[Rfam]
RNA sequence: CCCCUUGAAGCGCGCGCCGCCUCGGCUUAUCUUGGCACCGUCCCGCAAGGGACUAUGGCGAUAAACGCGCCCGUAAUAAGCGGAUCGGACCCGGGGGCGGUACCCGGCGGCUCCACCAAAUAUCCCACAUUGGCGGGAUCCUGGGGCCGAAACAGGAUCGACGGACGUCUAAAGGGGUUAGCUUUUGCCCGGUGAGCUACCACCGUUAUCGGUGCAAGCAUGAUAGUUGCCAAUGACAACCGUGCUCCGGUGGCGCUGGCUGCGUAAGCAGUCCGCAAAACCAAAUCUUAAGCCCUUGCGUCUAGCAACGUAAGGCGGGGUUCGCAGGUACCUGGCAACAGAAACCUGCACU
Numbered sequence: 001c002c003c004c005u006u007g008a009a010g011c012g013c014g015c016g017c018c019g020c021c022u023c024g025g026c027u028u029a030u031c032u033u034g035g036c037a038c039c040g041u042c043c044c045g046c047a048a049g050g051g052a053c054u055a056u057g058g059c060g061a062u063a064a065a066c067g068c069g070c071c072c073g074u075a076a077u078a079a080g081c082g083g084a085u086c087g088g089a090c091c092c093g094g095g096g097g098c099g100g101u102a103c104c105c106g107g108c109g110g111c112u113c114c115a116c117c118a119a120a121u122a123u124c125c126c127a128c129a130u131u132g133g134c135g136g137g138a139u140c141c142u143g144g145g146g147c148c149g150a151a152a153c154a155g156g157a158u159c160g161a162c163g164g165a166c167g168u169c170u171a172a173a174g175g176g177g178u179u180a181g182c183u184u185u186u187g188c189c190c191g192g193u194g195a196g197c198u199a200c201c202a203c204c205g206u207u208a209u210c211g212g213u214g215c216a217a218g219c220a221u222g223a224u225a226g227u228u229g230c231c232a233a234u235g236a237c238a239a240c241c242g243u244g245c246u247c248c249g250g251u252g253g254c255g256c257u258g259g260c261u262g263c264g265u266a267a268g269c270a271g272u273c274c275g276c277a278a279a280a281c282c283a284a285a286u287c288u289u290a291a292g293c294c295c296u297u298g299c300g301u302c303u304a305g306c307a308a309c310g311u312a313a314g315g316c317g318g319g320g321u322u323c324g325c326a327g328g329u330a331c332c333u334g335g336c337a338a339c340a341g342a343a344a345c346c347u348g349c350a351c352u
Base pairs, nucleotide, nucleotide: 040053041052042051043050044049057189058188059187060186061185067182068181069178070177071176072175081167082166085164086163087162091107092106093105094104095103108149109148110147111146112145113144114143190205191204192203193202196215197214199213200212201211318333319332320331321330324349325348326347327346328345329344